[Rfam]
RNA: Enterococcus sRNA 1300
Organism: Xenopus laevis
RNA sequence: AACGUUUCUCAAACUGUGUGUGUGUAUAUAUAUAUAUAUAUAUAUAUAUAUACACACAUAUACAGUUUGAGAAAGGCCUCGGAGAGGCCGAAACGUUAUAUAUAUAUAUAUAUAUAUAACGUUUCGGCCUCUCCGAGGCCUUUCUCAAACUGUAUGUAUAUAUAUAUAUAUAGU
Dot-bracket structure: .....((((((((((..((((((((..((((((((((....))))))))))))))))))....))))))))))(((((((((((((((((((..((((..(((........)))..))))..)))))))))))))))))))................(((((....)))))...
Numbered sequence: 001a002a003c004g005u006u007u008c009u010c011a012a013a014c015u016g017u018g019u020g021u022g023u024g025u026a027u028a029u030a031u032a033u034a035u036a037u038a039u040a041u042a043u044a045u046a047u048a049u050a051u052a053c054a055c056a057c058a059u060a061u062a063c064a065g066u067u068u069g070a071g072a073a074a075g076g077c078c079u080c081g082g083a084g085a086g087g088c089c090g091a092a093a094c095g096u097u098a099u100a101u102a103u104a105u106a107u108a109u110a111u112a113u114a115u116a117u118a119a120c121g122u123u124u125c126g127g128c129c130u131c132u133c134c135g136a137g138g139c140c141u142u143u144c145u146c147a148a149a150c151u152g153u154a155u156g157u158a159u160a161u162a163u164a165u166a167u168a169u170a171u172a173g174u
Stems, first nucleotide, its partner, number of pairs: 006073010018059008028051010074141019095120004101114003158171005